Background: The family of this 104-nucleotide sequence from Rathayibacter toxicus is "mraW RNA". Taxonomically the source falls in Rathayibacter (Bacteria, Bacillati, Actinomycetota, Micrococcales). A search with the family's covariance model found it, with a score of 54 bits.

RNA sequence: UCUAGUUCCUGCCGUGCGAUUCCCAUCCACUCGGCGCCCGGACACACCUUCCCCGGUGUCCGGACGUGAGGUGGCUGGGAAUCGAGCGGCAGGAACUCCGACAG
Number, nucleotide and partner (000 for none) at each position: 001u000002c000003u000004a000005g000006u000007u094008c093009c092010u091011g090012c089013c088014g000015u000016g000017c000018g083019a082020u000021u080022c079023c078024c077025a076026u000027c074028c073029a072030c071031u069032c068033g000034g067035c066036g065037c000038c063039c062040g061041g060042a059043c058044a057045c056046a000047c000048c000049u000050u000051c000052c000053c000054c000055g000056g045057u044058g043059u042060c041061c040062g039063g038064a000065c036066g035067u034068g032069a031070g000071g030072u029073g028074g027075c000076u025077g024078g023079g022080a021081a000082u019083c018084g000085a000086g000087c000088g013089g012090c011091a010092g009093g008094a007095a000096c000097u000098c000099c000100g000101a000102c000103a000104g000